[Rfam]
RNA sequence: UGUUAGCCCCGAUAGCAGCGGCAUCCUCCCCGCCGCCCGCUUUCGCGGCGGGGAGAUAGAGCGAAUAGCGGGAAAAAGC
Number, nucleotide and partner (000 for none) at each position: 001u000002g000003u000004u000005a000006g000007c000008c000009c071010c070011g069012a000013u067014a066015g000016c000017a000018g062019c061020g000021g000022c000023a057024u056025c055026c000027u000028c053029c052030c051031c050032g049033c048034c047035g046036c000037c000038c000039g000040c000041u000042u000043u000044c000045g000046c035047g034048g033049c032050g031051g030052g029053g028054a000055g025056a024057u023058a000059g000060a000061g019062c018063g000064a000065a000066u014067a013068g000069c011070g010071g009072g000073a000074a000075a000076a000077a000078g000079c000